A member of the RNA family "SAM riboswitch aptamer (S box leader)" from Lishizhenia tianjinensis, 92 nucleotides long. From the family's description: The SAM riboswitch is found upstream of a number of genes which code for proteins involved in methionine or cysteine biosynthesis in Gram-positive bacteria. The source organism's lineage runs through Bacteria, Pseudomonadati, Flavobacteriia, Flavobacteriales and Lishizhenia. A search with the family's covariance model found it, with a score of 71 bits.

RNA sequence: GAUUUAUGUAGAAGAGGUGAGAGACAGGCUCUAUGACCCUCUGGCAACCCGCUCAAACGAUGAGCAUGGUGCCAAUUCCUGAUAGAUAAAUU
Numbered sequence: 001g002a003u004u005u006a007u008g009u010a011g012a013a014g015a016g017g018u019g020a021g022a023g024a025c026a027g028g029c030u031c032u033a034u035g036a037c038c039c040u041c042u043g044g045c046a047a048c049c050c051g052c053u054c055a056a057a058c059g060a061u062g063a064g065c066a067u068g069g070u071g072c073c074a075a076u077u078c079c080u081g082a083u084a085g086a087u088a089a090a091u092u
Stems, first nucleotide, its partner, number of pairs: 001092007013042005021031003025081004043073004048069002051065004077084001
Dot-bracket structure: (((((((.....(((((...(((.[[[[)))......)))))((((.((.((((.......))))..))))))...(]]]]..).)))))))
Pairs were carried over by alignment from the consensus structure, which is taken from published work.